[Rfam]
RNA sequence: GCUCAUACCCCCUUCACAACGGAUCGUCCGGCACGUACCUGCCGGUGAAGAAAGGUGU
Numbered sequence: 001g002c003u004c005a006u007a008c009c010c011c012c013u014u015c016a017c018a019a020c021g022g023a024u025c026g027u028c029c030g031g032c033a034c035g036u037a038c039c040u041g042c043c044g045g046u047g048a049a050g051a052a053a054g055g056u057g058u
Base pairs, nucleotide, nucleotide: 012050013049014048015047016046028045029044030043031042032041033040

Shown here is a 58-nucleotide RNA sequence from Corynebacterium sp. TAE3-ERU30, a member of the family "msiK RNA". Lineage of the source: Bacteria > Bacillati > Actinomycetes > Corynebacteriaceae > Corynebacterium. It is annotated as a cis-regulatory element. Pairs were carried over by alignment from the consensus structure, which is taken from published work.